[Rfam]
RNA sequence: ACCUGCCGCGGGUGCCGUGAACGGCGUCCGCGGCGGCAGACAGAAACCGUGCUCUGGGAAGAUUUGGGCACAUAAGGGCGUU
Numbered sequence: 001a002c003c004u005g006c007c008g009c010g011g012g013u014g015c016c017g018u019g020a021a022c023g024g025c026g027u028c029c030g031c032g033g034c035g036g037c038a039g040a041c042a043g044a045a046a047c048c049g050u051g052c053u054c055u056g057g058g059a060a061g062a063u064u065u066g067g068g069c070a071c072a073u074a075a076g077g078g079c080g081u082u
Base pairs, nucleotide, nucleotide: 004035005034006033007032008031009030010029011028012027013026014025015024016023049071050070051069052068053067054066056064
A member of the RNA family "nrdJ RNA" from Streptomyces somaliensis, 82 nucleotides long. It is one of the family's seed sequences. The source organism's lineage runs through Bacteria, Bacillati, Actinomycetota, Streptomyces and Streptomyces somaliensis.